[Rfam]
A member of the RNA family "Pseudomonas sRNA P18" from Pseudomonas sp. MRSN 12121, 135 nucleotides long.
A search with the family's covariance model found it, with a score of 112 bits.
The literature on the family includes a 2006 paper in Nucleic Acids Res by Livny et al., "Identification of 17 Pseudomonas aeruginosa sRNAs and prediction of sRNA-encoding genes in 10 diverse pathogens using the bioinformatic tool sRNAPredict2".

RNA sequence: GGCGGAGUGUUGCUCAGCCCGUUUCUGAUUUAUGUGGUGCUGGCGCUGGUGUUGACCGGGGCGUUGCGCAUGCUGUUGCGCGCGACGCCGCUGGGACGCUGGAUCUGGCAUGAAGCACUGUUCGAUGUGGCCCUG
Numbered sequence: 001g002g003c004g005g006a007g008u009g010u011u012g013c014u015c016a017g018c019c020c021g022u023u024u025c026u027g028a029u030u031u032a033u034g035u036g037g038u039g040c041u042g043g044c045g046c047u048g049g050u051g052u053u054g055a056c057c058g059g060g061g062c063g064u065u066g067c068g069c070a071u072g073c074u075g076u077u078g079c080g081c082g083c084g085a086c087g088c089c090g091c092u093g094g095g096a097c098g099c100u101g102g103a104u105c106u107g108g109c110a111u112g113a114a115g116c117a118c119u120g121u122u123c124g125a126u127g128u129g130g131c132c133c134u135g
Stems, first nucleotide, its partner, number of pairs: 002067004007062002010059002012052002014049005019043003023039001068133001075097003079093002098131004103126003108121003